Rfam assigns this 139-nucleotide sequence from Tetranychus urticae to the family "mir-252 microRNA precursor family".
[Rfam]
RNA sequence: UUCGUCGGCUAAGUAGUAGUGCCGCAGGUCGCCAUCGGUGAUCAUCUCUUCGAUCAACAAUAAUGUUGCUUUGGAGUUUGAUGAUUGCAAACCGUGUGAUAAGUCAAGCCGACCUGCACACCGCUACUUAACAGACUAA
Numbered sequence: 001u002u003c004g005u006c007g008g009c010u011a012a013g014u015a016g017u018a019g020u021g022c023c024g025c026a027g028g029u030c031g032c033c034a035u036c037g038g039u040g041a042u043c044a045u046c047u048c049u050u051c052g053a054u055c056a057a058c059a060a061u062a063a064u065g066u067u068g069c070u071u072u073g074g075a076g077u078u079u080g081a082u083g084a085u086u087g088c089a090a091a092c093c094g095u096g097u098g099a100u101a102a103g104u105c106a107a108g109c110c111g112a113c114c115u116g117c118a119c120a121c122c123g124c125u126a127c128u129u130a131a132c133a134g135a136c137u138a139a
Stems, first nucleotide, its partner, number of pairs: 001139002004136003010130008019121001024117007

It scores 45 bits against the family's covariance model. NCBI's taxonomy places the organism under Eukaryota, Metazoa, Chelicerata, Tetranychidae, Tetranychus.